[Rfam]
Rfam assigns this 357-nucleotide sequence from Faunimonas pinastri to the family "Alphaproteobacteria transfer-messenger RNA". The family's consensus secondary structure is taken from published work. A search with the family's covariance model found it, with a score of 297 bits. A reference for the family is Williams and Bartel (1996), "Phylogenetic analysis of tmRNA secondary structure", RNA.

RNA sequence: GGGCUUUGCAACCUCGCGGACCUUGCCUAUAUUCGUUUCGUGCCGGUCGCACCGGCUAUGGCGAUAAACGACCAUCGUAAUAAACCUAUCGGACCCGGGGGCGGUACCCGGCGCCUCCACCACCAACGGUCUUCAGGACCGCUGCUGCUGGGGGCGAAACAGGAUCGACGAGGGCGUAAAGGGUGUGUUUUUGCUCGGCAUGGUACCGCCGUUAUCGGGCUCUUAAAAUAGUUGCCAAUGACAACUAUGCUCCGGUUGCUGUCGCCGCGUAAUGCGGUGCCGGUAAUGGAAAUCAAGUCCUAGGGGGUAGCACUUCUGGGCGGGGUUCGGAGGCACCUGGCAACAGAAGCCUCCACU
Numbered sequence: 001g002g003g004c005u006u007u008g009c010a011a012c013c014u015c016g017c018g019g020a021c022c023u024u025g026c027c028u029a030u031a032u033u034c035g036u037u038u039c040g041u042g043c044c045g046g047u048c049g050c051a052c053c054g055g056c057u058a059u060g061g062c063g064a065u066a067a068a069c070g071a072c073c074a075u076c077g078u079a080a081u082a083a084a085c086c087u088a089u090c091g092g093a094c095c096c097g098g099g100g101g102c103g104g105u106a107c108c109c110g111g112c113g114c115c116u117c118c119a120c121c122a123c124c125a126a127c128g129g130u131c132u133u134c135a136g137g138a139c140c141g142c143u144g145c146u147g148c149u150g151g152g153g154g155c156g157a158a159a160c161a162g163g164a165u166c167g168a169c170g171a172g173g174g175c176g177u178a179a180a181g182g183g184u185g186u187g188u189u190u191u192u193g194c195u196c197g198g199c200a201u202g203g204u205a206c207c208g209c210c211g212u213u214a215u216c217g218g219g220c221u222c223u224u225a226a227a228a229u230a231g232u233u234g235c236c237a238a239u240g241a242c243a244a245c246u247a248u249g250c251u252c253c254g255g256u257u258g259c260u261g262u263c264g265c266c267g268c269g270u271a272a273u274g275c276g277g278u279g280c281c282g283g284u285a286a287u288g289g290a291a292a293u294c295a296a297g298u299c300c301u302a303g304g305g306g307g308u309a310g311c312a313c314u315u316c317u318g319g320g321c322g323g324g325g326u327u328c329g330g331a332g333g334c335a336c337c338u339g340g341c342a343a344c345a346g347a348a349g350c351c352u353c354c355a356c357u
Stems, first nucleotide, its partner, number of pairs: 042056005060195005070188001073185004085174003089171003095111005112156007196211004202221002206218002323338004329354006